Shown here is an 87-nucleotide RNA from Cucumis melo, a member of the family "Small nucleolar RNA R11/Z151". A search with the family's covariance model found it, with a score of 70 bits. Rfam links the family to the GO terms nucleolus and RNA processing.
[Rfam]
RNA sequence: GGGCUUAUGAUGAUAUUUCAAAUAAUCUUAUCGAAUUUUAGUGAGAUUUUUCUAUCAAUGGUAUGAUUGUUACACCCACUAAAGCCU
Dot-bracket structure: (((((.............................................................................)))))
NCBI's taxonomy places the organism under Eukaryota, Embryophyta, Mesangiospermae, fabids, Cucumis. Rfam classes the family as a C/D-box small nucleolar RNA. The family has 5 seed sequences and 802 matches in Rfam 15.1.